Background:
Rfam assigns this 154-nucleotide RNA from Rhododendron williamsianum to the family "small nucleolar RNA snoR134". Rfam links the family to the GO terms nucleolus and RNA processing. It scores 87 bits against the family's covariance model. Lineage of the source: Eukaryota > Euphyllophyta > Ericales > Ericoideae > Rhododendron. The family has 5 seed sequences and 792 matches in Rfam 15.1. For this family Rfam cites "Mining small RNA sequencing data: a new approach to identify small nucleolar RNAs in Arabidopsis" (Chen and Wu, Nucleic Acids Res, 2009).
RNA sequence: UCGCACGAUCUCUCCCGGGCUUCUCUGAUCAAUUUUCAUGACGAAGAAAGCCCCAAAGCUCGUGCUACAACCCACGCCGUCUGUGUUGCAGAUUAGCCCUCUGUACCUUUACUUUCCCAUGGCUCUUUCUGUGUCGAAUUAUACGGCUACAUUC
Numbered sequence: 001u002c003g004c005a006c007g008a009u010c011u012c013u014c015c016c017g018g019g020c021u022u023c024u025c026u027g028a029u030c031a032a033u034u035u036u037c038a039u040g041a042c043g044a045a046g047a048a049a050g051c052c053c054c055a056a057a058g059c060u061c062g063u064g065c066u067a068c069a070a071c072c073c074a075c076g077c078c079g080u081c082u083g084u085g086u087u088g089c090a091g092a093u094u095a096g097c098c099c100u101c102u103g104u105a106c107c108u109u110u111a112c113u114u115u116c117c118c119a120u121g122g123c124u125c126u127u128u129c130u131g132u133g134u135c136g137a138a139u140u141a142u143a144c145g146g147c148u149a150c151a152u153u154c
Base pairs, nucleotide, nucleotide: 003065004064005063006062007061008060011058017053018052019051020050021049022047023046024044025043076147077146078145079144080143082141084136085135087133088132089131090130091129092128096123097122098121